[Rfam]
RNA: int-alpA RNA
Organism: Fundidesulfovibrio magnetotacticus
RNA sequence: UCCCCGGCUAGAGGCGGCCUCAUGAACCGCCCCGAAAAGGGUGGACCUCCCUCCAUCCCUGCCGGGGGUUUCAAAAGGG
Dot-bracket structure: ((((((((..(.(((((.........))))).).....(((((.......[[.)))))..)))))))).........]]